[Rfam]
RNA: MIR1222 microRNA precursor family
RNA sequence: AGCUGAUGUUGUUAUUAUUGUUACGGGCAUUCGUGUGCUGGUGAACUCCUUCAUGCACAAGUGCGGCUCUUCGCGCACCAGCUUUAAGGGGUUCACUGGUAUAUGAAUGCACAUGGCAUGAUCUGAUCACGGGAG
Number, nucleotide and partner (000 for none) at each position: 001a000002g000003c000004u000005g000006a000007u000008g000009u000010u000011g000012u000013u000014a000015u000016u000017a000018u000019u118020g117021u116022u115023a114024c000025g112026g000027g110028c109029a108030u107031u106032c105033g000034u000035g102036u101037g100038c099039u098040g097041g096042u095043g094044a093045a092046c091047u090048c089049c088050u087051u086052c000053a084054u000055g000056c081057a000058c000059a000060a000061g076062u075063g074064c073065g000066g000067c000068u000069c000070u000071u000072c000073g064074c063075g062076c061077a000078c000079c000080a000081g056082c000083u000084u053085u000086a051087a050088g049089g048090g047091g046092u045093u044094c043095a042096c041097u040098g039099g038100u037101a036102u035103a000104u000105g032106a031107a030108u029109g028110c027111a000112c025113a000114u023115g022116g021117c020118a019119u000120g000121a000122u000123c000124u000125g000126a000127u000128c000129a000130c000131g000132g000133g000134a000135g000